[Rfam]
RNA: c-di-GMP-I riboswitch aptamer
RNA sequence: AUCCCGAAACGGCACCCCGGUCGCGAGGCCGGUCCGCAAAGCUAGGGGUCUCCCGCGCGAGACAGCCCGGCCGCCGAA
Numbered sequence: 001a002u003c004c005c006g007a008a009a010c011g012g013c014a015c016c017c018c019g020g021u022c023g024c025g026a027g028g029c030c031g032g033u034c035c036g037c038a039a040a041g042c043u044a045g046g047g048g049u050c051u052c053c054c055g056c057g058c059g060a061g062a063c064a065g066c067c068c069g070g071c072c073g074c075c076g077a078a
Base pairs, nucleotide, nucleotide: 012037013036017032018031019030020029021028022027041071042070043069045068046067047066048063049062050061051060052059